[Rfam]
Overview
A member of the RNA family "Selenocysteine transfer RNA" from Rubrobacter taiwanensis, 90 nucleotides long. It scores 57 bits against the family's covariance model. Pairs were carried over by alignment from the consensus structure, which is taken from published work.
RNA sequence: CGGAGAGGCGGGCAUCGGCGUGCCAAGCGGUCUUGAAAACCGUCGGCGGCUGGAGACAGUCGCCUGAGGGUUCGAAUCCCUCCCUCUCCG
Numbered sequence: 001c002g003g004a005g006a007g008g009c010g011g012g013c014a015u016c017g018g019c020g021u022g023c024c025a026a027g028c029g030g031u032c033u034u035g036a037a038a039a040c041c042g043u044c045g046g047c048g049g050c051u052g053g054a055g056a057c058a059g060u061c062g063c064c065u066g067a068g069g070g071u072u073c074g075a076a077u078c079c080c081u082c083c084c085u086c087u088c089c090g
Base pairs, nucleotide, nucleotide: 001090002089003088004087005086006085007084008083011024012023013022014021015020027043028042029041030040031039046063047062048061049060050059067081068080069079070078

Gene Ontology term of the family: triplet codon-amino acid adaptor activity.